Rfam assigns this 76-nucleotide sequence from Callithrix jacchus to the family "mir-320 microRNA precursor family". The organism belongs to Callithrix, within Eukaryota. The literature on the family includes a 2006 paper in Genome Res by Berezikov et al., "Many novel mammalian microRNA candidates identified by extensive cloning and RAKE analysis".

[Rfam]
RNA sequence: AAUAAAUUAGUCCCCUGCUUUCUAGUUCUUCCUAGAGUGAGGAAAAGCUGGGUUGAGAGGGCAAAGUUACUAAUUA
Numbered sequence: 001a002a003u004a005a006a007u008u009a010g011u012c013c014c015c016u017g018c019u020u021u022c023u024a025g026u027u028c029u030u031c032c033u034a035g036a037g038u039g040a041g042g043a044a045a046a047g048c049u050g051g052g053u054u055g056a057g058a059g060g061g062c063a064a065a066g067u068u069a070c071u072a073a074u075u076a
Base pairs, nucleotide, nucleotide: 014059016057018055021052022051023050024049025048029044030043031042032041033040
Dot-bracket structure: .............(.(.(..(((((...(((((......)))))...)))))..).).).................
The family has 38 seed sequences and 659 matches in Rfam 15.1.